Shown here is an 85-nucleotide sequence from Desulforamulus aquiferis, a member of the family "c-di-GMP-I riboswitch aptamer". It scores 87 bits against the family's covariance model. Rfam links the family to the GO term cyclic-di-GMP binding.
RNA sequence: UAACGAUAAAGGCAAACUUAUCGAAAGAUAAGGACGCAAAGCCAUGGGUCUAAAGCCGGGAGGUUAAGAUUGCCAGGUUACCGAA
Numbered sequence: 001u002a003a004c005g006a007u008a009a010a011g012g013c014a015a016a017c018u019u020a021u022c023g024a025a026a027g028a029u030a031a032g033g034a035c036g037c038a039a040a041g042c043c044a045u046g047g048g049u050c051u052a053a054a055g056c057c058g059g060g061a062g063g064u065u066a067a068g069a070u071u072g073c074c075a076g077g078u079u080a081c082c083g084a085a
Stems, first nucleotide, its partner, number of pairs: 012037002017032006040079004045075003048070003055064003